[Rfam]
RNA sequence: AGCCGGGGACGACCCCGAACAUGCUUCAAGGAUUCAGCCGGGACGACCCGG
Numbered sequence: 001a002g003c004c005g006g007g008g009a010c011g012a013c014c015c016c017g018a019a020c021a022u023g024c025u026u027c028a029a030g031g032a033u034u035c036a037g038c039c040g041g042g043a044c045g046a047c048c049c050g051g
Base pairs, nucleotide, nucleotide: 004017005016006015007014008013038051039050040049041048042047

Notes:
The record is a 51-nucleotide RNA from Vibrio aerogenes, which matches "Guanidine-II riboswitch aptamer (mini-ykkC)" in Rfam. A search with the family's covariance model found it, with a score of 35 bits. On this family, see Weinberg et al., Nucleic Acids Res 2007: "Identification of 22 candidate structured RNAs in bacteria using the CMfinder comparative genomics pipeline". The base pairs follow the family's consensus structure, which is taken from published work.